Notes:
A member of the RNA family "MIR164 microRNA precursor family" from Acer saccharum, 67 nucleotides long. On this family, see Reinhart et al., Genes Dev 2002: "MicroRNAs in plants". NCBI's taxonomy places the organism under Eukaryota, Mesangiospermae, Pentapetalae, Hippocastanoideae, Acer. A search with the family's covariance model found it, with a score of 74 bits.

[Rfam]
RNA sequence: UGGAGAAGGGGAGCACGUGCAAAGAGUGCAGUGGCACAAGUGUUUGCACGUGCCCUGCUUCUCCAAC
Number, nucleotide and partner (000 for none) at each position: 001u065002g064003g063004a062005g061006a060007a059008g058009g000010g056011g055012a000013g053014c052015a051016c050017g049018u048019g047020c046021a045022a044023a043024g000025a000026g000027u000028g035029c034030a000031g000032u000033g000034g029035c028036a000037c000038a000039a000040g000041u000042g000043u023044u022045u021046g020047c019048a018049c017050g016051u015052g014053c013054c000055c011056u010057g000058c008059u007060u006061c005062u004063c003064c002065a001066a000067c000